[Rfam]
RNA sequence: UUGAUAAUAAUAGCGCCCGAACUAAGCCUAGAGCGGAGAAAACAGGCUUAGUUGACGAGGAGGAGGUUUAUCGAGUUUUCGGCGGAUGCCUCCCGGUUGAACGCACAGCCGUGAAUUCUCUUCUUAAAACAUCAGGGCGACCUGGUGGACAAAGGAAGGGAAAUGCGAUUUC
Numbered sequence: 001u002u003g004a005u006a007a008u009a010a011u012a013g014c015g016c017c018c019g020a021a022c023u024a025a026g027c028c029u030a031g032a033g034c035g036g037a038g039a040a041a042a043c044a045g046g047c048u049u050a051g052u053u054g055a056c057g058a059g060g061a062g063g064a065g066g067u068u069u070a071u072c073g074a075g076u077u078u079u080c081g082g083c084g085g086a087u088g089c090c091u092c093c094c095g096g097u098u099g100a101a102c103g104c105a106c107a108g109c110c111g112u113g114a115a116u117u118c119u120c121u122u123c124u125u126a127a128a129a130c131a132u133c134a135g136g137g138c139g140a141c142c143u144g145g146u147g148g149a150c151a152a153a154g155g156a157a158g159g160g161a162a163a164u165g166c167g168a169u170u171u172c
Stems, first nucleotide, its partner, number of pairs: 020053008029044001062093005071082004094111006116162007130147007
A member of the RNA family "glmS glucosamine-6-phosphate activated ribozyme aptamer" from Bacillus smithii, 172 nucleotides long.
The family's RNA type in Rfam is riboswitch.
It scores 143 bits against the family's covariance model.
The family's consensus secondary structure is taken from published work.
For this family Rfam cites "Control of gene expression by a natural metabolite-responsive ribozyme" (Winkler et al., Nature, 2004).
The organism belongs to Bacillus smithii, within Bacteria.